[Rfam]
RNA sequence: CUAUGAUUCAGCAUAUGAUUCAUGGCAAAGGAG
Numbered sequence: 001c002u003a004u005g006a007u008u009c010a011g012c013a014u015a016u017g018a019u020u021c022a023u024g025g026c027a028a029a030g031g032a033g
Stems, first nucleotide, its partner, number of pairs: 001025005008018003
A member of the RNA family "L31-Firmicutes ribosomal protein leader" from Pediococcus claussenii, 33 nucleotides long. A reference for the family is Eckert and Weinberg (2020), "Discovery of 20 novel ribosomal leader candidates in bacteria and archaea", BMC Microbiol. Taxonomically the source falls in Pediococcus claussenii (Bacteria, Bacilli, Lactobacillaceae, Pediococcus).